A member of the RNA family "BsrC" from Paenibacillus sp. FSL R7-0331, 87 nucleotides long. The base pairs follow the family's consensus structure, which was predicted with CMfinder. By type it is a small RNA. The organism belongs to Paenibacillus, within Bacteria.

[Rfam]
RNA sequence: UCCUUCCAAAACGAUAAGAGCCCUACCUCUCUCUUAUCCUUGCGGCUCCGAGGCCGCGCCAGUGUGAAUCGGAAUGCUAUAUUCGAA
Numbered sequence: 001u002c003c004u005u006c007c008a009a010a011a012c013g014a015u016a017a018g019a020g021c022c023c024u025a026c027c028u029c030u031c032u033c034u035u036a037u038c039c040u041u042g043c044g045g046c047u048c049c050g051a052g053g054c055c056g057c058g059c060c061a062g063u064g065u066g067a068a069u070c071g072g073a074a075u076g077c078u079a080u081a082u083u084c085g086a087a
Base pairs, nucleotide, nucleotide: 034067035066036065039062040061041058042057043056044055045054046053047052